[Rfam]
RNA: Bacterial small subunit ribosomal RNA, nucleotides 477 to 832
RNA sequence: GGUGUAAAAAGUGAUUAGGCGGUAAAAUAACUCAAUUUAAUUAAAGAGAUAAAAAUUUAAAAAAUUAAAUUUGGAAAAUUAUUUUACUUGAGUAUUAUAAAAGGAAUUGGAAUUUUUUAUGUAAGGAUGGAAUCUUGUUAUAUUAAAGAGAAUUCUAGAUGGCUUAGGCUUUUUUCUAUAUAUUGAUACUGACGCUGAGUAACUAAAGUAUGGGUAGCAAAAAGGAUUAGAGACCCUAUUAGUCCAUACCUUCAACGAGGAAUGUUAUAAAUUAUUAUCAUAAUAGUUUAUAAAAAAUUUACGUUUUAAACAUUCUACCUGGAGAGUACUAGGGCAACCUAUAAACCCAAAAGAAA
Numbered sequence: 001g002g003u004g005u006a007a008a009a010a011g012u013g014a015u016u017a018g019g020c021g022g023u024a025a026a027a028u029a030a031c032u033c034a035a036u037u038u039a040a041u042u043a044a045a046g047a048g049a050u051a052a053a054a055a056u057u058u059a060a061a062a063a064a065u066u067a068a069a070u071u072u073g074g075a076a077a078a079u080u081a082u083u084u085u086a087c088u089u090g091a092g093u094a095u096u097a098u099a100a101a102a103g104g105a106a107u108u109g110g111a112a113u114u115u116u117u118u119a120u121g122u123a124a125g126g127a128u129g130g131a132a133u134c135u136u137g138u139u140a141u142a143u144u145a146a147a148g149a150g151a152a153u154u155c156u157a158g159a160u161g162g163c164u165u166a167g168g169c170u171u172u173u174u175u176c177u178a179u180a181u182a183u184u185g186a187u188a189c190u191g192a193c194g195c196u197g198a199g200u201a202a203c204u205a206a207a208g209u210a211u212g213g214g215u216a217g218c219a220a221a222a223a224g225g226a227u228u229a230g231a232g233a234c235c236c237u238a239u240u241a242g243u244c245c246a247u248a249c250c251u252u253c254a255a256c257g258a259g260g261a262a263u264g265u266u267a268u269a270a271a272u273u274a275u276u277a278u279c280a281u282a283a284u285a286g287u288u289u290a291u292a293a294a295a296a297a298u299u300u301a302c303g304u305u306u307u308a309a310a311c312a313u314u315c316u317a318c319c320u321g322g323a324g325a326g327u328a329c330u331a332g333g334g335c336a337a338c339c340u341a342u343a344a345a346c347c348c349a350a351a352a353g354a355a356a
Base pairs, nucleotide, nucleotide: 001319002318003317009316011203012202014200016197018196019195020194022087023086024085025084026083027082028081030080032076033073034071035070036069037068038067039066040065041064042063091190092189093188094184096182097181098180099179102177103176104175105174106173109153113149114148115147116146117145119143120142124135125134126133159170162169163168208249209248210247211246212245213244217243218242223237224236225235260315261314262313263312264311265310268290269289270288271287272286273285274284275283276282297304298303321348322347330341331340332339333338